RNA sequence: AACAGAGUAGAAAAUAAAGCGUCAAGUGCCAAUGGGAUGGGAUGUUGCCUAUUGGACGAAAAGUGCUAAUGGAGCACUUGCGACAUUAUUUUUGCAUUCGCUGCA
Numbered sequence: 001a002a003c004a005g006a007g008u009a010g011a012a013a014a015u016a017a018a019g020c021g022u023c024a025a026g027u028g029c030c031a032a033u034g035g036g037a038u039g040g041g042a043u044g045u046u047g048c049c050u051a052u053u054g055g056a057c058g059a060a061a062a063g064u065g066c067u068a069a070u071g072g073a074g075c076a077c078u079u080g081c082g083a084c085a086u087u088a089u090u091u092u093u094g095c096a097u098u099c100g101c102u103g104c105a
Base pairs, nucleotide, nucleotide: 003103004102005101010093011092012091013090014089015088016087017086019084020082021081022080026057027056029055030054031053032052033051034050035049036048040099041098042097043096044095061079062078063077064076065075066074067073
RNA: THF (Tetrahydrofolate) riboswitch aptamer